[Rfam]
Small nucleolar RNA snoR104: a 135-nucleotide RNA from Handroanthus impetiginosus. The literature on the family includes a 2002 paper in Curr Biol by Marker et al., "Experimental RNomics: identification of 140 candidates for small non-messenger RNAs in the plant Arabidopsis thaliana". Pairs were carried over by alignment from the consensus structure, which was predicted with WAR. Its family is annotated with nucleolus and RNA processing in the Gene Ontology. It scores 42 bits against the family's covariance model.
RNA sequence: AGGUAACAUGAAGAAGAGCUUUGCAUGUUUCCUUCGCAUGUUUCCUCAUGCAAUCUUCCAACAAAAAGCUUCUGUCUGUCGUUCCUGCUUGUGGUUUCAAAGCAAAAACCAUGUCUCAAGUUUCCAGGCACAAGC
Dot-bracket structure: (((.((((((..........................)))))).)))........................(((.............((.(..((.((........)).))).))...........))).......